[Rfam]
RNA sequence: AGCUUAUCAGUGAUGUUUUUAAAAAAAUGUCUGAACAUAUGAAUAUAACAAUGAUUUCAGCAUUUAACUGAGAUAAGCU
Numbered sequence: 001a002g003c004u005u006a007u008c009a010g011u012g013a014u015g016u017u018u019u020u021a022a023a024a025a026a027a028u029g030u031c032u033g034a035a036c037a038u039a040u041g042a043a044u045a046u047a048a049c050a051a052u053g054a055u056u057u058c059a060g061c062a063u064u065u066a067a068c069u070g071a072g073a074u075a076a077g078c079u
Stems, first nucleotide, its partner, number of pairs: 002078007
RNA: Small nucleolar RNA SNORD72